Overview
This 139-nucleotide sequence from Leersia perrieri belongs to the Rfam family "Small nucleolar RNA Z247". Gene Ontology terms of the family: nucleolus and RNA processing. Taxonomically the source falls in Leersia (Eukaryota, Spermatophyta, Liliopsida, Oryzeae). Rfam classes the family as a C/D-box small nucleolar RNA. The family's consensus secondary structure was predicted with PFOLD.
[Rfam]
RNA sequence: CGCCUCGACGACGAGGAGCUUGUCUCCUACAUACUGUCUGGUCUGGACGUCGACUUCAACCCGGUGGUCACCGCCGUCGCGUCCAGGGUCGAGCCGAUGACCGUGGGCGAGCUCUUUGCCCAGCUCGUUAGCUUUGAGA
Numbered sequence: 001c002g003c004c005u006c007g008a009c010g011a012c013g014a015g016g017a018g019c020u021u022g023u024c025u026c027c028u029a030c031a032u033a034c035u036g037u038c039u040g041g042u043c044u045g046g047a048c049g050u051c052g053a054c055u056u057c058a059a060c061c062c063g064g065u066g067g068u069c070a071c072c073g074c075c076g077u078c079g080c081g082u083c084c085a086g087g088g089u090c091g092a093g094c095c096g097a098u099g100a101c102c103g104u105g106g107g108c109g110a111g112c113u114c115u116u117u118g119c120c121c122a123g124c125u126c127g128u129u130a131g132c133u134u135u136g137a138g139a
Stems, first nucleotide, its partner, number of pairs: 004138005093108003097104002